ROOL RNA: a 602-nucleotide RNA from Lactococcus allomyrinae. Taxonomically the source falls in Lactococcus (Bacteria, Bacilli, Lactobacillales, Streptococcaceae).
Nucleotides: 602
Base pairs, nucleotide, nucleotide: 008598010596012594015591016590019587021585022584025056026055027054028053029052036051037050038049039048058189059188060187061186062185063184097135098134099133100132101131102130107128108127109126110125111124113122114121115120136158138156142153143152144151145150161174162173163172164171165170196565197564198563199562200561201560202559203558207554208553209552210551213550217378218377219376220375222372223371224370225369226368227367228336229335230334231333232332233331246265247264248263249262250261251260279318280317281316282315283314284313290307291306292305293304294303295302297325298324299323300322337400338399339398340397348359349358350357351356382455388450389449390448391447393445440526441525459476462473478539479538480537491534493532496529501520502519503518505516506515570582571581572580
Number, partner (000 for none) and nucleotide at each position: 001000c002000a003000u004000c005000c006000u007000c008598u009000g010596c011000a012594a013000u014000u015591a016590u017000u018000g019587u020000c021585u022584c023000a024000u025056c026055u027054c028053g029052g030000u031000u032000a033000u034000a035000c036051a037050g038049g039048g040000c041000u042000u043000g044000a045000u046000a047000a048039c049038c050037c051036u052029c053028c054027g055026a056025g057000a058189g059188c060187c061186u062185u063184u064000c065000u066000a067000a068000g069000u070000a071000u072000g073000c074000c075000c076000u077000u078000a079000g080000u081000g082000g083000u084000g085000u086000a087000u088000g089000a090000a091000a092000g093000u094000a095000a096000c097135c098134u099133u100132u101131g102130u103000a104000a105000g106000u107128u108127u109126u110125a111124g112000u113122g114121g115120u116000g117000a118000u119000a120115a121114c122113c123000c124111c125110u126109a127108a128107g129000c130102g131101c132100g133099a134098a135097g136158a137000u138156u139000g140000a141000a142153g143152c144151g145150u146000g147000u148000g149000a150145g151144c152143g153142u154000g155000a156138a157000u158136u159000u160000g161174c162173u163172a164171g165170u166000a167000a168000a169000a170165g171164c172163u173162a174161g175000u176000g177000u178000g179000a180000a181000a182000u183000g184063g185062a186061a187060g188059g189058u190000g191000u192000g193000g194000c195000a196565a197564u198563g199562u200561u201560u202559u203558a204000u205000c206000a207554c208553u209552u210551u211000a212000g213550u214000g215000c216000a217378u218377u219376c220375u221000u222372c223371u224370u225369u226368u227367c228336g229335g230334u231333a232332g233331a234000u235000a236000g237000a238000a239000u240000u241000a242000u243000a244000c245000g246265g247264u248263g249262g250261u251260u252000g253000u254000u255000g256000c257000g258000a259000a260251a261250a262249c263248c264247a265246c266000a267000a268000g269000c270000a271000g272000c273000c274000g275000u276000a277000u278000a279318g280317c281316u282315c283314a284313g285000u286000g287000a288000g289000g290307c291306u292305u293304g294303c295302u296000c297325u298324a299323g300322c301000u302295g303294g304293c305292a306291a307290g308000g309000a310000a311000a312000c313284c314283u315282g316281a317280g318279u319000a320000u321000u322300g323299c324298u325297a326000a327000g328000c329000a330000a331233u332232c333231u334230g335229c336228u337400g338399u339398g340397u341000c342000g343000u344000g345000a346000a347000a348359c349358u350357g351356a352000g353000a354000a355000a356351u357350c358349a359348g360000g361000g362000u363000a364000u365000a366000a367227g368226a369225g370224a371223a372222g373000c374000g375220a376219g377218a378217a379000g380000u381000u382455c383000a384000a385000g386000u387000a388450g389449c390448c391447c392000a393445a394000g395000a396000c397340a398339c399338a400337u401000a402000c403000u404000c405000a406000u407000a408000a409000u410000a411000a412000a413000a414000a415000c416000a417000u418000u419000u420000a421000c422000u423000a424000a425000a426000u427000u428000a429000u430000a431000u432000g433000u434000u435000g436000a437000a438000a439000u440526c441525u442000g443000u444000a445393u446000c447391g448390g449389g450388u451000g452000a453000a454000a455382g456000u457000u458000g459476g460000g461000a462473g463000a464000u465000u466000u467000u468000g469000u470000u471000u472000c473462u474000c475000g476459c477000c478539c479538a480537a481000u482000c483000a484000u485000u486000a487000a488000a489000a490000g491534c492000a493532a494000u495000a496529g497000g498000a499000g500000c501520u502519a503518a504000g505516a506515g507000a508000g509000u510000u511000g512000c513000u514000a515506c516505u517000c518503u519502u520501a521000g522000u523000a524000g525441a526440g527000c528000c529496u530000g531000u532493u533000g534491g535000g536000a537480u538479u539478g540000u541000c542000g543000c544000a545000u546000a547000a548000u549000u550213a551210a552209g553208a554207g555000g556000a557000g558203u559202a560201a561200a562199a563198c564197a565196u566000u567000g568000u569000u570582u571581g572580g573000a574000g575000a576000a577000a578000a579000a580572c581571c582570g583000g584022g585021a586000c587019a588000a589000u590016a591015u592000u593000u594012u595000g596010g597000a598008g599000a600000a601000a602000u